[Rfam]
RNA: Small nucleolar RNA U54
RNA sequence: GGCUCUGUGAUUACGUGCCUAAUCGGCAAUAUACGCUAUUCUGAUUCAUUAUGAGUAGAAAAUUUAUAUUUCAAUGAGAGCU
Number, nucleotide and partner (000 for none) at each position: 001g082002g081003c080004u079005c078006u000007g000008u000009g000010a000011u000012u000013a000014c000015g000016u000017g000018c000019c000020u000021a000022a000023u000024c000025g000026g000027c000028a000029a000030u000031a000032u000033a000034c000035g000036c000037u000038a000039u000040u000041c000042u000043g000044a000045u000046u000047c000048a000049u000050u000051a000052u000053g000054a000055g000056u000057a000058g000059a000060a000061a000062a000063u000064u000065u000066a000067u000068a000069u000070u000071u000072c000073a000074a000075u000076g000077a000078g005079a004080g003081c002082u001